Archaeal small subunit ribosomal RNA: a 359-nucleotide part of an RNA from Methanopyrus kandleri. The family is grouped with related families in Rfam's "SSU clan". Its family is annotated with ribosome and structural constituent of ribosome in the Gene Ontology.

[Rfam]
RNA sequence: GGCCUAAAGGGGCCGUAGCCGGUCCCGUGGGUCCCCGCCGAAAGCCCGCGGCUUAACCGCGGGAGUCGGCGGGGAAACUGCGGGACUUGGGACCGGGAGAGGCCGGAGGUACCCCCGGGGUAGGGGUGAAAUCCUGUCAUCCCGGGGGGACCGCCAGUGGCGAAGGCGUCCGGCUGGAACGGGUCCGACGGUGAGGGCCGAAAGCCGGGGGAGCAAACCGGAUUAGAUACCCGGGUAGUCCCGGCUGUAAACGAUGCGGACUAGGUGUUGGGGCGGCCACGAGCCGCCCCAGUGCCGUAGGGAAGCCGUUAAGUCCGCCGCCUGGGGAGUACGGCCGCAAGGCUGAAACUUAAAGGAAU
Numbered sequence: 001g002g003c004c005u006a007a008a009g010g011g012g013c014c015g016u017a018g019c020c021g022g023u024c025c026c027g028u029g030g031g032u033c034c035c036c037g038c039c040g041a042a043a044g045c046c047c048g049c050g051g052c053u054u055a056a057c058c059g060c061g062g063g064a065g066u067c068g069g070c071g072g073g074g075a076a077a078c079u080g081c082g083g084g085a086c087u088u089g090g091g092a093c094c095g096g097g098a099g100a101g102g103c104c105g106g107a108g109g110u111a112c113c114c115c116c117g118g119g120g121u122a123g124g125g126g127u128g129a130a131a132u133c134c135u136g137u138c139a140u141c142c143c144g145g146g147g148g149g150a151c152c153g154c155c156a157g158u159g160g161c162g163a164a165g166g167c168g169u170c171c172g173g174c175u176g177g178a179a180c181g182g183g184u185c186c187g188a189c190g191g192u193g194a195g196g197g198c199c200g201a202a203a204g205c206c207g208g209g210g211g212a213g214c215a216a217a218c219c220g221g222a223u224u225a226g227a228u229a230c231c232c233g234g235g236u237a238g239u240c241c242c243g244g245c246u247g248u249a250a251a252c253g254a255u256g257c258g259g260a261c262u263a264g265g266u267g268u269u270g271g272g273g274c275g276g277c278c279a280c281g282a283g284c285c286g287c288c289c290c291a292g293u294g295c296c297g298u299a300g301g302g303a304a305g306c307c308g309u310u311a312a313g314u315c316c317g318c319c320g321c322c323u324g325g326g327g328a329g330u331a332c333g334g335c336c337g338c339a340a341g342g343c344u345g346a347a348a349c350u351u352a353a354a355g356g357a358a359u
Stems, first nucleotide, its partner, number of pairs: 001322003009319001011199004016193001018192003022086007030079002032075009045063007090186003093182003101175007108152002112148008123134003160167002204245006213239002218234004256318006264296014300307002324351003333344004